RNA: Small nucleolar RNA SNORA77
Organism: Pongo abelii
RNA sequence: GCAGACUCCCUCAGCAUCCAGCGGGUGCUUUUUCAGUCUGCCAGUGAGCAUUCCAUGGUGCUGUGACCAUUUUGACCUCUCUAGGGUGAUGCAGCUGCCUGGGGACACAGAG
Numbered sequence: 001g002c003a004g005a006c007u008c009c010c011u012c013a014g015c016a017u018c019c020a021g022c023g024g025g026u027g028c029u030u031u032u033u034c035a036g037u038c039u040g041c042c043a044g045u046g047a048g049c050a051u052u053c054c055a056u057g058g059u060g061c062u063g064u065g066a067c068c069a070u071u072u073u074g075a076c077c078u079c080u081c082u083a084g085g086g087u088g089a090u091g092c093a094g095c096u097g098c099c100u101g102g103g104g105a106c107a108c109a110g111a112g
Stems, first nucleotide, its partner, number of pairs: 001041006014028006053103002057099003060095006068088005